The family of this 107-nucleotide sequence from Caenorhabditis briggsae is "SL2 RNA". The family has 30 seed sequences and 598 matches in Rfam 15.1. It is annotated as a non-coding RNA gene. Pairs were carried over by alignment from the consensus structure, which is taken from published work. About the family: This family represents SL2 RNA. SL2 RNA is involved in trans splicing in lower eukaryotes. Trans-splicing is a form of RNA processing. The acquisition of a spliced leader from a SL RNA is a intra-molecular reaction which precisely joins exons derived from separately transcribed RNAs. Approximately 25% of C. elegans genes are organised into polycistronic transcription units and the presence of SL2 on an mRNA is an indication the the gene is in an operon.
RNA sequence: GGUUUUUACCCUGAUAACCAAGGUAAAUAUUGUUCGACCUGUCGAGAGAUUGUGUUGAAAAACAAUAAUUUUUGUAACAGCUUCUUCGGGGUAUCCGUCGAGGCGAA
Numbered sequence: 001g002g003u004u005u006u007u008a009c010c011c012u013g014a015u016a017a018c019c020a021a022g023g024u025a026a027a028u029a030u031u032g033u034u035c036g037a038c039c040u041g042u043c044g045a046g047a048g049a050u051u052g053u054g055u056u057g058a059a060a061a062a063c064a065a066u067a068a069u070u071u072u073u074g075u076a077a078c079a080g081c082u083u084c085u086u087c088g089g090g091g092u093a094u095c096c097g098u099c100g101a102g103g104c105g106a107a
Base pairs, nucleotide, nucleotide: 008033009032013028017024018023035057036056037055038054039052041050042049043048082105084103085102086101087100088099089098090096091095
Dot-bracket structure: .......((...(...((....))...)...)).(((((.(((....))).).))))........................(.((((((((...)).)))))).)..